[Rfam]
RNA sequence: ACACGGGAAAGGAGGUGGUCCAAGAGUGAAUUCUCAAAGGACGCGUGAGGUGGUUGCGCGCUAGCGCAACCUACGUGUUCGUCCCGGCUACCUCCGGUCAGCCGACUCAGGACGAAACGGACGUUCGGUAGCUACUCCAACGCAGCCACCGCAGCCCGUGGGUGUGCGAUUCGUCCAACGCACAAGCCGGCACCGCCGGAGCCCACGGGCUGUCCCAU
Numbered sequence: 001a002c003a004c005g006g007g008a009a010a011g012g013a014g015g016u017g018g019u020c021c022a023a024g025a026g027u028g029a030a031u032u033c034u035c036a037a038a039g040g041a042c043g044c045g046u047g048a049g050g051u052g053g054u055u056g057c058g059c060g061c062u063a064g065c066g067c068a069a070c071c072u073a074c075g076u077g078u079u080c081g082u083c084c085c086g087g088c089u090a091c092c093u094c095c096g097g098u099c100a101g102c103c104g105a106c107u108c109a110g111g112a113c114g115a116a117a118c119g120g121a122c123g124u125u126c127g128g129u130a131g132c133u134a135c136u137c138c139a140a141c142g143c144a145g146c147c148a149c150c151g152c153a154g155c156c157c158g159u160g161g162g163u164g165u166g167c168g169a170u171u172c173g174u175c176c177a178a179c180g181c182a183c184a185a186g187c188c189g190g191c192a193c194c195g196c197c198g199g200a201g202c203c204c205a206c207g208g209g210c211u212g213u214c215c216c217a218u
Stems, first nucleotide, its partner, number of pairs: 015057005060132004065127001068125003072121001074119003152212012165182004170177001
RNA: Actinobacteria sRNA Ms_IGR-5
Organism: Flexivirga aerilata